[Rfam]
RNA sequence: GAAGACCCUGUUGAGCUUUACUCUAGUCUGGCUUUGUGAAACGACUUAAGAGGUGUAGCAUAAGUGGGAGUAGAAACUGAAAUAUGUUUUUACGACAGUGAAAUACCACUACUUUUAAAGUUGUUUUACUUAUCCAUUUAUAGGGAAAUAUAUUAUGCUUUAUCCUUCGGGAAGGCAUUCUGAUAUUAUUUGAAUUUUUAAGAAACUUGUUUCUUAUUUUUCUCCCAAUUUCUAUGGAGACAUAGCCAGGUGGGGAGUUUGACUGGGGCGGUACAUCUGUUAAAUAUUAACGCAGAUGUCCAAAGACAAGCUCAAAGAGAACAGAAAUCUCUUGUAGACUAAAAGGGGAAAAGCUUGUUUGAUUUCUAUUUUCAGAACAAGUAGAAAACGUGAAAGCGUGGCCUAUCGAUCCUUUAUAUUUGCAAAAUGACGUAAAUUACUUACUACUGUGCAUAUAGAGGUGUCUGAAAAGUUACCACAGGGAUAACUGGCUUGUGGCUGCCAAGCGCUCCUAGCGACGUAGCUUUUUGAUCCUUCGAUGU
Numbered sequence: 001g002a003a004g005a006c007c008c009u010g011u012u013g014a015g016c017u018u019u020a021c022u023c024u025a026g027u028c029u030g031g032c033u034u035u036g037u038g039a040a041a042c043g044a045c046u047u048a049a050g051a052g053g054u055g056u057a058g059c060a061u062a063a064g065u066g067g068g069a070g071u072a073g074a075a076a077c078u079g080a081a082a083u084a085u086g087u088u089u090u091u092a093c094g095a096c097a098g099u100g101a102a103a104u105a106c107c108a109c110u111a112c113u114u115u116u117a118a119a120g121u122u123g124u125u126u127u128a129c130u131u132a133u134c135c136a137u138u139u140a141u142a143g144g145g146a147a148a149u150a151u152a153u154u155a156u157g158c159u160u161u162a163u164c165c166u167u168c169g170g171g172a173a174g175g176c177a178u179u180c181u182g183a184u185a186u187u188a189u190u191u192g193a194a195u196u197u198u199u200a201a202g203a204a205a206c207u208u209g210u211u212u213c214u215u216a217u218u219u220u221u222c223u224c225c226c227a228a229u230u231u232c233u234a235u236g237g238a239g240a241c242a243u244a245g246c247c248a249g250g251u252g253g254g255g256a257g258u259u260u261g262a263c264u265g266g267g268g269c270g271g272u273a274c275a276u277c278u279g280u281u282a283a284a285u286a287u288u289a290a291c292g293c294a295g296a297u298g299u300c301c302a303a304a305g306a307c308a309a310g311c312u313c314a315a316a317g318a319g320a321a322c323a324g325a326a327a328u329c330u331c332u333u334g335u336a337g338a339c340u341a342a343a344a345g346g347g348g349a350a351a352a353g354c355u356u357g358u359u360u361g362a363u364u365u366c367u368a369u370u371u372u373c374a375g376a377a378c379a380a381g382u383a384g385a386a387a388a389c390g391u392g393a394a395a396g397c398g399u400g401g402c403c404u405a406u407c408g409a410u411c412c413u414u415u416a417u418a419u420u421u422g423c424a425a426a427a428u429g430a431c432g433u434a435a436a437u438u439a440c441u442u443a444c445u446a447c448u449g450u451g452c453a454u455a456u457a458g459a460g461g462u463g464u465c466u467g468a469a470a471a472g473u474u475a476c477c478a479c480a481g482g483g484a485u486a487a488c489u490g491g492c493u494u495g496u497g498g499c500u501g502c503c504a505a506g507c508g509c510u511c512c513u514a515g516c517g518a519c520g521u522a523g524c525u526u527u528u529u530g531a532u533c534c535u536u537c538g539a540u541g542u
Base pairs, nucleotide, nucleotide: 007482008481009480010479012478013477014474015473016472017471018470020258021257022256023255027250028249029248030247031246032245033244036129037128038127039126040125041124042123043122044121045120046118047117048116049115050114051113052112063110064109065108066107067106070093071092072091073090074089075088076087077086133238134237135236136235137234143226144225145224146223151185152184153183154182155181202220203219204218205217261274262272263271264270275297276296277295278294279293280292300401301400306358307357308356309355310354311353312338313337315333316332317331318330319329320328339348340347363387364386365385366384367383368382369381370380371379389398390397391396412460413459414458415457416456417455421453422452423451491532493530495529497525498524499523500522501521502520506516507515
Shown here is a 542-nucleotide part of an RNA from Plasmodium falciparum, a member of the family "Eukaryotic large subunit ribosomal RNA". A search with the family's covariance model found it, with a score of 2658 bits.